Overview:
The family of this 71-nucleotide RNA from Daphoenositta chrysoptera is "Small nucleolar RNA SNORD63". The family has 23 seed sequences and 795 matches in Rfam 15.1. The source organism's lineage runs through Eukaryota, Opisthokonta, Metazoa, Teleostomi and Daphoenositta. On this family, see Galardi et al., Mol Cell Biol 2002: "Purified box C/D snoRNPs are able to reproduce site-specific 2'-O-methylation of target RNA in vitro". About the family: snoRNA U63 is found in both humans and mice.
RNA sequence: GUGCCAUGAUGUCAACUCAACACAUCAUUCUGAAGAAGAAUUGUGCGGAGACCUUCCGGGUUCUGAGCACC
Numbered sequence: 001g002u003g004c005c006a007u008g009a010u011g012u013c014a015a016c017u018c019a020a021c022a023c024a025u026c027a028u029u030c031u032g033a034a035g036a037a038g039a040a041u042u043g044u045g046c047g048g049a050g051a052c053c054u055u056c057c058g059g060g061u062u063c064u065g066a067g068c069a070c071c
Base pairs, nucleotide, nucleotide: 001070002069003068004067